The family of this 61-nucleotide sequence from Lonepinella koalarum is "L31-Gammaproteobacteria ribosomal protein leader". The family's RNA type in Rfam is cis-regulatory leader. The organism belongs to Lonepinella, within Bacteria. The literature on the family includes a 2020 paper in BMC Microbiol by Eckert and Weinberg, "Discovery of 20 novel ribosomal leader candidates in bacteria and archaea".
RNA sequence: CAUGCGGUGUUUGAUGUUCUUUUAGAAUCGAUCUUAUAGCGGCAUGGCUUCAAUUUGAGGU
Number, nucleotide and partner (000 for none) at each position: 001c046002a045003u044004g043005c042006g000007g040008u039009g000010u000011u000012u000013g033014a032015u031016g000017u000018u000019c000020u000021u000022u000023u000024a000025g000026a000027a000028u000029c000030g000031a015032u014033c013034u000035u000036a000037u000038a000039g008040c007041g000042g005043c004044a003045u002046g001047g000048c000049u000050u000051c000052a000053a000054u000055u000056u000057g000058a000059g000060g000061u000